A member of the RNA family "tRNA", 70 nucleotides long. It is one of the family's seed sequences. By type it is a transfer RNA.

[Rfam]
RNA sequence: AAGGAACUAGUUAAGUUAUAACACUGGAUUGUCAGACCGGAGUAACUGGUAAACAACCCAGUGUUCCUUA
Number, nucleotide and partner (000 for none) at each position: 001a069002a068003g067004g066005a065006a064007c063008u000009a000010g022011u021012u020013a019014a000015g000016u000017u000018a000019u013020a012021a011022c010023a000024c040025u039026g038027g037028a000029u000030u000031g000032u000033c000034a000035g000036a000037c027038c026039g025040g024041a000042g000043u000044a000045a062046c061047u060048g059049g058050u000051a000052a000053a000054c000055a000056a000057c000058c049059c048060a047061g046062u045063g007064u006065u005066c004067c003068u002069u001070a000